[Rfam]
RNA sequence: UAUGUAAAAGGCAAACCUGUUAAAAGGCAGGGACGCAAAGCCACGGGCCUAAAGCUAUGCUAUGGCAGCCGGGUUGCCAUGA
Dot-bracket structure: (.((......((...((((((....))))))..[))..((((.((((((..............))).])))))))..))..)
Shown here is an 82-nucleotide RNA sequence from Anaerocolumna cellulosilytica, a member of the family "c-di-GMP-I-GGC riboswitch aptamer". Clan: c-di-GMP_I riboswitch clan. NCBI's taxonomy places the organism under Bacteria, Bacillati, Clostridia, Lachnospiraceae, Anaerocolumna.